[Rfam]
RNA sequence: CCGCCCUCUAACAUGGGGGCACUUGCUGGAACGUGAUGGAAAUAAGUGCUUCCAUGUUUGAGCGCGG
Numbered sequence: 001c002c003g004c005c006c007u008c009u010a011a012c013a014u015g016g017g018g019g020c021a022c023u024u025g026c027u028g029g030a031a032c033g034u035g036a037u038g039g040a041a042a043u044a045a046g047u048g049c050u051u052c053c054a055u056g057u058u059u060g061a062g063c064g065c066g067g
Base pairs, nucleotide, nucleotide: 001067002066003065006062007061008060010058011057012056013055014054015053016052017051018050019049020048021047022046023045024044025043027041
About this RNA: Shown here is a 67-nucleotide sequence from Chinchilla lanigera, a member of the family "mir-302 microRNA precursor family". The base pairs follow the family's consensus structure, which was predicted with RNAalifold. The family has 49 seed sequences and 2,090 matches in Rfam 15.1. The organism belongs to Chinchilla, within Eukaryota.